[Rfam]
RNA: mir-130 microRNA precursor family
Organism: Ornithorhynchus anatinus
RNA sequence: CCCAAGCCCGGGUUCUUUCCACUGAGCCCCGCUGCUUAACAGAGAAGCAGCGUGGCUCAGUGGAAAGAGCAUGGGCUUUGGA
Numbered sequence: 001c002c003c004a005a006g007c008c009c010g011g012g013u014u015c016u017u018u019c020c021a022c023u024g025a026g027c028c029c030c031g032c033u034g035c036u037u038a039a040c041a042g043a044g045a046a047g048c049a050g051c052g053u054g055g056c057u058c059a060g061u062g063g064a065a066a067g068a069g070c071a072u073g074g075g076c077u078u079u080g081g082a
Base pairs, nucleotide, nucleotide: 002081003080005077006076007075008074009073010072012070013069014068015067016066017065018064019063022060023059024058025057026056027055028054030052